Notes: Rfam assigns this 74-nucleotide RNA from Mycoplasma marinum to the family "tRNA". By type it is a transfer RNA. The source organism's lineage runs through Bacteria, Bacillati, Mollicutes, Mycoplasmatales and Mycoplasma. Gene Ontology term of the family: triplet codon-amino acid adaptor activity. Pairs were carried over by alignment from the consensus structure, which is taken from published work.
RNA sequence: GGGGGGGUAGCUCAUCUGGCUAGAGCGCCUGCCUUGCACGCAGGAGGUAGUGGGUUCGAUCCCCAUCCUCUCCA
Numbered sequence: 001g002g003g004g005g006g007g008u009a010g011c012u013c014a015u016c017u018g019g020c021u022a023g024a025g026c027g028c029c030u031g032c033c034u035u036g037c038a039c040g041c042a043g044g045a046g047g048u049a050g051u052g053g054g055u056u057c058g059a060u061c062c063c064c065a066u067c068c069u070c071u072c073c074a
Base pairs, nucleotide, nucleotide: 001073002072003071004070005069006068007067010026011025012024013023028044029043030042031041032040050066051065052064053063054062